[Rfam]
RNA sequence: GGUAGCCGUGGCGAUGGUGUCCGCCUGAGGAUCGUCCUCGAACCGCCGGCCGGCUGAUGACCCCUGCGACGAA
Numbered sequence: 001g002g003u004a005g006c007c008g009u010g011g012c013g014a015u016g017g018u019g020u021c022c023g024c025c026u027g028a029g030g031a032u033c034g035u036c037c038u039c040g041a042a043c044c045g046c047c048g049g050c051c052g053g054c055u056g057a058u059g060a061c062c063c064c065u066g067c068g069a070c071g072a073a
Base pairs, nucleotide, nucleotide: 010025011024012023013022016064017063019061020060021059045054046053047052
The family of this 73-nucleotide RNA from Microlunatus phosphovorus is "Fluoride riboswitch aptamer (crcB RNA motif)". A search with the family's covariance model found it, with a score of 45 bits. The organism belongs to Microlunatus phosphovorus, within Bacteria.